[Rfam]
Rfam assigns this 96-nucleotide RNA sequence from Streptomyces wuyuanensis to the family "Glycine riboswitch aptamer".

RNA sequence: UGACCCCGUGCGGGAGAGUGCCCCGGCGAAAGCCGGAGCCGCCGAAGGAGCAAAUCCUCCCCGGAAUCUCUCAGGCCCCUGUACCGCAUGGACGAG
Dot-bracket structure: .....((((((((......((.(............).)).(((((..(((....(.......)....))))).))).......)))))))).....
Numbered sequence: 001u002g003a004c005c006c007c008g009u010g011c012g013g014g015a016g017a018g019u020g021c022c023c024c025g026g027c028g029a030a031a032g033c034c035g036g037a038g039c040c041g042c043c044g045a046a047g048g049a050g051c052a053a054a055u056c057c058u059c060c061c062c063g064g065a066a067u068c069u070c071u072c073a074g075g076c077c078c079c080u081g082u083a084c085c086g087c088a089u090g091g092a093c094g095a096g
Stems, first nucleotide, its partner, number of pairs: 006091008020039002023036001041076003044072002048070003055063001